[Rfam]
RNA sequence: AUGUGUCUUCAGAGGCAGGGUGUAAUUCCCGACCGGUGGUUAUAGUCCACGACCCAUUAGUUAUUAAUGGCUGAAGCGGUGAAACCCCGCUACCGAUAGUUAAAGUCUAGAUAAAAGAAGAUUGGG
Numbered sequence: 001a002u003g004u005g006u007c008u009u010c011a012g013a014g015g016c017a018g019g020g021u022g023u024a025a026u027u028c029c030c031g032a033c034c035g036g037u038g039g040u041u042a043u044a045g046u047c048c049a050c051g052a053c054c055c056a057u058u059a060g061u062u063a064u065u066a067a068u069g070g071c072u073g074a075a076g077c078g079g080u081g082a083a084a085c086c087c088c089g090c091u092a093c094c095g096a097u098a099g100u101u102a103a104a105g106u107c108u109a110g111a112u113a114a115a116a117g118a119a120g121a122u123u124g125g126g
Stems, first nucleotide, its partner, number of pairs: 005122006018030003032106002034095002036050004045093002054070002075091005097109003
FMN riboswitch aptamer (RFN element): a 126-nucleotide sequence from Loigolactobacillus backii. Taxonomically the source falls in Loigolactobacillus (Bacteria, Bacillati, Lactobacillales, Lactobacillaceae).